[Rfam]
RNA sequence: GUGGCCUGAGGGGAAGUUGCUUUUAGUACGAGAGGAACAAGGCAACGGCGCCACUAGUCAACCGGUCGUCCGACAGGGCGGGCCGGGCAGCCACGCGCUAAGUUGUAAGGGCUGAAAGCAUCUAAGCCCGAAAAACACCCUGAAAAAAGGCCACAAAAGGGUCCCCGUAAAAGACGGGGUGGAUAGAGUUGGGGCGUACGCGCAAAGGCAACGAUGCGCUCAACCCGCAACCACUAACAACCCAAACAA
Numbered sequence: 001g002u003g004g005c006c007u008g009a010g011g012g013g014a015a016g017u018u019g020c021u022u023u024u025a026g027u028a029c030g031a032g033a034g035g036a037a038c039a040a041g042g043c044a045a046c047g048g049c050g051c052c053a054c055u056a057g058u059c060a061a062c063c064g065g066u067c068g069u070c071c072g073a074c075a076g077g078g079c080g081g082g083c084c085g086g087g088c089a090g091c092c093a094c095g096c097g098c099u100a101a102g103u104u105g106u107a108a109g110g111g112c113u114g115a116a117a118g119c120a121u122c123u124a125a126g127c128c129c130g131a132a133a134a135a136c137a138c139c140c141u142g143a144a145a146a147a148a149g150g151c152c153a154c155a156a157a158a159g160g161g162u163c164c165c166c167g168u169a170a171a172a173g174a175c176g177g178g179g180u181g182g183a184u185a186g187a188g189u190u191g192g193g194g195c196g197u198a199c200g201c202g203c204a205a206a207g208g209c210a211a212c213g214a215u216g217c218g219c220u221c222a223a224c225c226c227g228c229a230a231c232c233a234c235u236a237a238c239a240a241c242c243c244a245a246a247c248a249a
Stems, first nucleotide, its partner, number of pairs: 001154007010141004016046008047099005055093001057091001062086005067080005102136003109129005159243004163179005184236003188231004192226003200219005207212001

Annotation
This 249-nucleotide part of an RNA from Methanocella conradii belongs to the Rfam family "Archaeal large subunit ribosomal RNA". Pairs were carried over by alignment from the consensus structure, which is taken from published work.